This 118-nucleotide sequence from Sporosarcina sp. P19 belongs to the Rfam family "TPP riboswitch aptamer (THI element)".
NCBI's taxonomy places the organism under Bacteria, Bacillati, Bacillota, Bacilli, Sporosarcina.
The match comes from Rfam's covariance-model search (78 bits).
Rfam links the family to the GO term thiamine pyrophosphate binding.
RNA sequence: UACUAAUACUAGGGGUGUCCAACGUUAUUGGACUGAGAUGGAAUGACAGUACACGCAUUCCGGACUCUUUGGACCUGAUCUGGCUCGUACCAGCGUAGGGAAGUUUUCAUUUUAUCAG
Numbered sequence: 001u002a003c004u005a006a007u008a009c010u011a012g013g014g015g016u017g018u019c020c021a022a023c024g025u026u027a028u029u030g031g032a033c034u035g036a037g038a039u040g041g042a043a044u045g046a047c048a049g050u051a052c053a054c055g056c057a058u059u060c061c062g063g064a065c066u067c068u069u070u071g072g073a074c075c076u077g078a079u080c081u082g083g084c085u086c087g088u089a090c091c092a093g094c095g096u097a098g099g100g101a102a103g104u105u106u107u108c109a110u111u112u113u114a115u116c117a118g
Stems, first nucleotide, its partner, number of pairs: 006106001008104003011068004016062001017033005040061005074099004080093004